The record is a 379-nucleotide sequence from Rickettsia sp., which matches "Bacterial RNase P class A" in Rfam. Rfam links the family to the GO terms tRNA processing, dimeric ribonuclease P complex and ribonuclease P activity. About the family: Ribonuclease P (RNase P) is a ubiquitous endoribonuclease, found in archaea, bacteria and eukarya as well as chloroplasts and mitochondria. Its best characterised activity is the generation of mature 5'-ends of tRNAs by cleaving the 5'-leader elements of precursor-tRNAs. Cellular RNase Ps are ribonucleoproteins.
RNA sequence: UGUUGUGGUUGGGCAGUUGCGGAAUUUAUAGUUUCGAGGAAAGUCCGGACUCUAAAUAGAAAUAGUGCUGGGUAAUUCCCAGUGGGUUAGUUCCUAAGGAAAGUGCAGCAGAAAACAGACCGCCUAUUUUUUAUACAAAAUUUAGGUAAGGGUGAAAAGGUGAGGUAAGAGCUUACCGGAUUUGUGGUGACAUGAAUCGCAUUGUAAACCCCAUUAUGAGCAAGACCAAAUGAGCAUUAAAGAAUCUUUAUUCUUCUAAUUUUCUAUUAUUAGCUUAAUGCUAGGUAGGUCGCUAGAGAUAAAUAGCAAUAUUUAUUCCAGAGAAAUAACUGCAUAGGUUUUUACCUAACAGAAUCCGGCUUAUAGACCACAACUGCAA
Numbered sequence: 001u002g003u004u005g006u007g008g009u010u011g012g013g014c015a016g017u018u019g020c021g022g023a024a025u026u027u028a029u030a031g032u033u034u035c036g037a038g039g040a041a042a043g044u045c046c047g048g049a050c051u052c053u054a055a056a057u058a059g060a061a062a063u064a065g066u067g068c069u070g071g072g073u074a075a076u077u078c079c080c081a082g083u084g085g086g087u088u089a090g091u092u093c094c095u096a097a098g099g100a101a102a103g104u105g106c107a108g109c110a111g112a113a114a115a116c117a118g119a120c121c122g123c124c125u126a127u128u129u130u131u132u133a134u135a136c137a138a139a140a141u142u143u144a145g146g147u148a149a150g151g152g153u154g155a156a157a158a159g160g161u162g163a164g165g166u167a168a169g170a171g172c173u174u175a176c177c178g179g180a181u182u183u184g185u186g187g188u189g190a191c192a193u194g195a196a197u198c199g200c201a202u203u204g205u206a207a208a209c210c211c212c213a214u215u216a217u218g219a220g221c222a223a224g225a226c227c228a229a230a231u232g233a234g235c236a237u238u239a240a241a242g243a244a245u246c247u248u249u250a251u252u253c254u255u256c257u258a259a260u261u262u263u264c265u266a267u268u269a270u271u272a273g274c275u276u277a278a279u280g281c282u283a284g285g286u287a288g289g290u291c292g293c294u295a296g297a298g299a300u301a302a303a304u305a306g307c308a309a310u311a312u313u314u315a316u317u318c319c320a321g322a323g324a325a326a327u328a329a330c331u332g333c334a335u336a337g338g339u340u341u342u343u344a345c346c347u348a349a350c351a352g353a354a355u356c357c358g359g360c361u362u363a364u365a366g367a368c369c370a371c372a373a374c375u376g377c378a379a
Stems, first nucleotide, its partner, number of pairs: 002374009011364001013333006020036007041362003045359005050220003059264003063216005068082005083097001084095003098211002103209002105205003120151002122147005129140004159177006178200001179198008224291004233282006259270002298317008